[Rfam]
RNA: c-di-AMP riboswitch aptamer (ydaO/yuaA leader)
Organism: Paenibacillus sp. OAS669
RNA sequence: UUUCUAAAAAUGCCGAAUCAAACUUUUAUUAAUUGUUUGUACGGGGGACGAUUUUCAUGGGGUGAAUGUUUGGGUUAUCCAAACUAGGGAGAAACCUCUUCCCGAAUCCGUCAACUAACCUCGGAGGCCCAAGGAGGGACUAU
Numbered sequence: 001u002u003u004c005u006a007a008a009a010a011u012g013c014c015g016a017a018u019c020a021a022a023c024u025u026u027u028a029u030u031a032a033u034u035g036u037u038u039g040u041a042c043g044g045g046g047g048a049c050g051a052u053u054u055u056c057a058u059g060g061g062g063u064g065a066a067u068g069u070u071u072g073g074g075u076u077a078u079c080c081a082a083a084c085u086a087g088g089g090a091g092a093a094a095c096c097u098c099u100u101c102c103c104g105a106a107u108c109c110g111u112c113a114a115c116u117a118a119c120c121u122c123g124g125a126g127g128c129c130c131a132a133g134g135a136g137g138g139a140c141u142a143u
Base pairs, nucleotide, nucleotide: 012128013127014126019039020038021037022036023035042123043122044121045120046119049059050058060109061108062107068084069083070082071081087103088102089101090100
Dot-bracket structure: ...........(((....(((((...........)))))..(((((..((.......))(((.....((((.........))))..((((.........))))...))).........)))))..)))...............